[Rfam]
RNA sequence: UGCCUAAACCCAGCAGAAAUGCGGGGCAUGGCACAGAAACCAAGUGCAUACUGAACCCAUCGUUCAGGCUCCAUGCACUUGGUCAUACCCCGAAAGGGGUAUGGACGGCUUCGGCUGUC
Numbered sequence: 001u002g003c004c005u006a007a008a009c010c011c012a013g014c015a016g017a018a019a020u021g022c023g024g025g026g027c028a029u030g031g032c033a034c035a036g037a038a039a040c041c042a043a044g045u046g047c048a049u050a051c052u053g054a055a056c057c058c059a060u061c062g063u064u065c066a067g068g069c070u071c072c073a074u075g076c077a078c079u080u081g082g083u084c085a086u087a088c089c090c091c092g093a094a095a096g097g098g099g100u101a102u103g104g105a106c107g108g109c110u111u112c113g114g115c116u117g118u119c
Stems, first nucleotide, its partner, number of pairs: 001033004009026003013022003040082010051067006084103008104119006
RNA: LOOT RNA